[Rfam]
RNA sequence: GUUCUGAAAGGGCAAACCUGCUGAAAGGCAGGGACGCAAAACCUCCGGCCUACAGCGCAUGGCGCCAUGGUAGCGGGGUUGCCGAU
Numbered sequence: 001g002u003u004c005u006g007a008a009a010g011g012g013c014a015a016a017c018c019u020g021c022u023g024a025a026a027g028g029c030a031g032g033g034a035c036g037c038a039a040a041a042c043c044u045c046c047g048g049c050c051u052a053c054a055g056c057g058c059a060u061g062g063c064g065c066c067a068u069g070g071u072a073g074c075g076g077g078g079u080u081g082c083c084g085a086u
Stems, first nucleotide, its partner, number of pairs: 012037002017032006040080004045076003048071003055065004

This 86-nucleotide RNA sequence from Burkholderiales bacterium PBB4 belongs to the Rfam family "c-di-GMP-I riboswitch aptamer". Lineage of the source: Bacteria > Pseudomonadati > Pseudomonadota > Betaproteobacteria > Burkholderiales. The base pairs follow the family's consensus structure, which is taken from published work.